[Rfam]
RNA sequence: GAGUCUAGCAUGUGCGCGAGUCACGGGGUCUCUCGAAACCCAAGGGCGCAAUGAAAGUGAAGGCCGCCUCCGGCUGGCCCAGGCAAGAUCCCGAGUCGUUCGCGACGAGGGCGCACUGCCGGCCCGUCUCGCUGGCAUCGACCACGAGGCGGAGCAAGAGCGCACACGCUGGGACCCGAAAGAUGGUGAACUAUGCCUGAGUAGGACGAAGUCAGGGGAAACUCUGAUGGAGGUCCGUAGCGAUUCUGACGUGCAAAUCGAUCGUCAAACUUGGGUAUAGGGGCGAAAGACUAAUCGAACCAUCUAGUAGCUGGUU
Numbered sequence: 001g002a003g004u005c006u007a008g009c010a011u012g013u014g015c016g017c018g019a020g021u022c023a024c025g026g027g028g029u030c031u032c033u034c035g036a037a038a039c040c041c042a043a044g045g046g047c048g049c050a051a052u053g054a055a056a057g058u059g060a061a062g063g064c065c066g067c068c069u070c071c072g073g074c075u076g077g078c079c080c081a082g083g084c085a086a087g088a089u090c091c092c093g094a095g096u097c098g099u100u101c102g103c104g105a106c107g108a109g110g111g112c113g114c115a116c117u118g119c120c121g122g123c124c125c126g127u128c129u130c131g132c133u134g135g136c137a138u139c140g141a142c143c144a145c146g147a148g149g150c151g152g153a154g155c156a157a158g159a160g161c162g163c164a165c166a167c168g169c170u171g172g173g174a175c176c177c178g179a180a181a182g183a184u185g186g187u188g189a190a191c192u193a194u195g196c197c198u199g200a201g202u203a204g205g206a207c208g209a210a211g212u213c214a215g216g217g218g219a220a221a222c223u224c225u226g227a228u229g230g231a232g233g234u235c236c237g238u239a240g241c242g243a244u245u246c247u248g249a250c251g252u253g254c255a256a257a258u259c260g261a262u263c264g265u266c267a268a269a270c271u272u273g274g275g276u277a278u279a280g281g282g283g284c285g286a287a288a289g290a291c292u293a294a295u296c297g298a299a300c301c302a303u304c305u306a307g308u309a310g311c312u313g314g315u316u
Stems, first nucleotide, its partner, number of pairs: 005172005011166007020047003026041004051058002082120004090111002122155002124152006134142001175314002178311001182304006191280011202268001204236004211228007240265004245261002248259002282292002
RNA: Eukaryotic large subunit ribosomal RNA, nucleotides 842 to 1157
Organism: Dreissena polymorpha